Rfam assigns this 119-nucleotide sequence from Thermosipho melanesiensis to the family "FMN riboswitch aptamer (RFN element)". Rfam's curators put it in the seed alignment. Lineage of the source: Bacteria > Thermotogati > Fervidobacteriaceae > Thermosipho > Thermosipho melanesiensis.
Nucleotides: 119
Stems, first nucleotide, its partner, number of pairs: 005115006017029003031099002033088002035049004044086002052064002068084005090102003
Number, partner (000 for none) and nucleotide at each position: 001000u002000a003000g004000a005115g006114u007113c008112c009111u010110c011000g012000g013000g014000g015000c016000a017029g018028g019027g020000u021000g022000a023000a024000a025000g026000u027019c028018c029017c030000g031099a032098c033088c034087g035049g036048c037047g038046g039000u040000g041000a042000a043000a044086g045085c046038c047037c048036g049035c050000g051000a052064g053063c054000c055000c056000g057000u058000u059000a060000a061000g062000g063053g064052u065000u066000g067000a068084u069083c070082c071081g072080g073000u074000g075000a076000a077000a078000u079000u080072c081071c082070g083069g084068a085045g086044c087034c088033g089000a090102c091101g092100g093000u094000u095000a096000a097000a098032g099031u100092c101091c102090g103000g104000a105000u106000g107000g108000g109000a110010g111009a112008g113007g114006a115005c116000a117000a118000u119000g